[Rfam]
RNA sequence: GGAAAGGUACCCAAGUGGUCCAAGGGGGUUGACUCGAAAUCAACUAGGCGUCGCGAGGCGUGCGUGGGUUCGAAUCCCACCCUUUCCG
Dot-bracket structure: (((((((..(((...........))).(((((.......)))))...................(((((.......)))))))))))).
RNA: tRNA